RNA sequence: GGUCGGUGAUGGACGUUGGCAUGUAUUAGCUGAGCACAAAUCUGAAGACUGUCAGCUUAGCUCUAGAAUUACUCUGAGACCUG
Numbered sequence: 001g002g003u004c005g006g007u008g009a010u011g012g013a014c015g016u017u018g019g020c021a022u023g024u025a026u027u028a029g030c031u032g033a034g035c036a037c038a039a040a041u042c043u044g045a046a047g048a049c050u051g052u053c054a055g056c057u058u059a060g061c062u063c064u065a066g067a068a069u070u071a072c073u074c075u076g077a078g079a080c081c082u083g
Base pairs, nucleotide, nucleotide: 001081002080003079004078

The record is an 83-nucleotide RNA from Aramus guarauna, which matches "Small nucleolar RNA SNORD45" in Rfam. The family's RNA type in Rfam is C/D-box small nucleolar RNA. Rfam 15.1 lists 1,629 matches to the family in 521 species. The source organism's lineage runs through Eukaryota, Amniota, Archosauria, Neognathae and Aramus. Pairs were carried over by alignment from the consensus structure, which was predicted with PFOLD. The match comes from Rfam's covariance-model search (59 bits). For this family Rfam cites "Purified box C/D snoRNPs are able to reproduce site-specific 2'-O-methylation of target RNA in vitro" (Galardi et al., Mol Cell Biol, 2002).